[Rfam]
The record is a 90-nucleotide sequence from Syntrophobotulus glycolicus, which matches "c-di-GMP-I riboswitch aptamer" in Rfam. Rfam describes the family as follows. GEMM was predicted in a large-scale screen for bacterial structured RNA regulatory elements. Genes associated with GEMM are involved in a diverse array of functions, including chemotaxis regulation, signal transduction, secretion and chitin. A search with the family's covariance model found it, with a score of 64 bits. Taxonomically the source falls in Syntrophobotulus glycolicus (Bacteria, Bacillati, Bacillota, Syntrophobotulus).

RNA sequence: UAUCGCUAAGGGCAAACCCGCUGAAAAACGGGGAUGCCAAAGCUAUAGGGUCUAAGGCGCAUCUAACGCUAUGAUAGCUUGGCUGCCAAA
Dot-bracket structure: ...........((...((((.(....).))))...))...((((..((((((....(((.......)))...)))..)))))))......